A member of the RNA family "Mammalian CPEB3 ribozyme" from Alligator mississippiensis, 79 nucleotides long. It scores 41 bits against the family's covariance model. The source organism's lineage runs through Eukaryota, Opisthokonta, Tetrapoda, Sauropsida and Alligator. Rfam describes the family as follows. The mammalian CPEB3 ribozyme is a self cleaving RNA located in the second intron of the CPEB3 gene which belongs to a family of genes regulating messenger RNA polyadenylation. This ribozyme is highly conserved and found only in mammals. The CPEB3 ribozyme is structurally and biochemically related to the human hepatitis delta virus (HDV) ribozyme and the HDV ribozyme is proposed to have arisen from the human transcriptome. There is currently only one other known self cleaving ribozyme in mammals, the CoTC motif.
RNA sequence: AAAGGUCACAAGUUUGAGAUCACAGCAGAAGUGCUCAUAGUUCGGCCUGUCAGAUUCCAAUGAAUCUGCAAAUUCUGCU
Numbered sequence: 001a002a003a004g005g006u007c008a009c010a011a012g013u014u015u016g017a018g019a020u021c022a023c024a025g026c027a028g029a030a031g032u033g034c035u036c037a038u039a040g041u042u043c044g045g046c047c048u049g050u051c052a053g054a055u056u057c058c059a060a061u062g063a064a065u066c067u068g069c070a071a072a073u074u075c076u077g078c079u
Base pairs, nucleotide, nucleotide: 018047020045021044024079025078026077027076028075029074030073031043033041051068052067053066054065055064056063057062